[Rfam]
Small nucleolar RNA U49: a 64-nucleotide RNA from Kalanchoe fedtschenkoi. Rfam 15.1 lists 340 matches to the family in 152 species. Its family is annotated with nucleolus and RNA processing in the Gene Ontology. It scores 59 bits against the family's covariance model. Lineage of the source: Eukaryota > Viridiplantae > Streptophyta > Euphyllophyta > Kalanchoe. The family's consensus secondary structure was predicted with CMfinder.

RNA sequence: CCCCUGUGAGGAAGCAUUCCCAUUGAUAGGAAGUGCCGUAUGACACUUUAUACGCGGCGGAUCG
Numbered sequence: 001c002c003c004c005u006g007u008g009a010g011g012a013a014g015c016a017u018u019c020c021c022a023u024u025g026a027u028a029g030g031a032a033g034u035g036c037c038g039u040a041u042g043a044c045a046c047u048u049u050a051u052a053c054g055c056g057g058c059g060g061a062u063c064g
Base pairs, nucleotide, nucleotide: 014058015057030049031048032047033046034045035044
Dot-bracket structure: .............((..............((((((........)))))).......))......